[Rfam]
RNA sequence: GAUUUAUACAGAAGCGAGGAGAGAUUGGGCUCUGCGAAUCGCUGGCAACCUACCACACGGCAAGGUGCUAAUUCCUACCCGAGGCAGGGUGCCGACGGGAAAUAUGAACA
Number, nucleotide and partner (000 for none) at each position: 001g000002a000003u108004u107005u106006a105007u104008a103009c000010a000011g000012a000013a043014g042015c041016g040017a039018g000019g000020a000021g032022a031023g030024a000025u000026u077027g076028g075029g074030c023031u022032c021033u000034g000035c000036g000037a000038a000039u017040c016041g015042c014043u013044g069045g068046c067047a066048a000049c065050c064051u062052a000053c060054c059055a000056c000057a000058c000059g054060g053061c000062a051063a000064g050065g049066u047067g046068c045069u044070a000071a000072u000073u102074c029075c028076u027077a026078c099079c098080c097081g096082a000083g000084g000085c000086a000087g000088g000089g000090u000091g000092c000093c000094g000095a000096c081097g080098g079099g078100a000101a000102a073103u008104a007105u006106g005107a004108a003109c000110a000
Rfam assigns this 110-nucleotide RNA sequence from Fibrella sp. to the family "SAM riboswitch aptamer (S box leader)". The family's consensus secondary structure is taken from published work. Lineage of the source: Bacteria > Bacteroidota > Cytophagales > Spirosomataceae > Fibrella.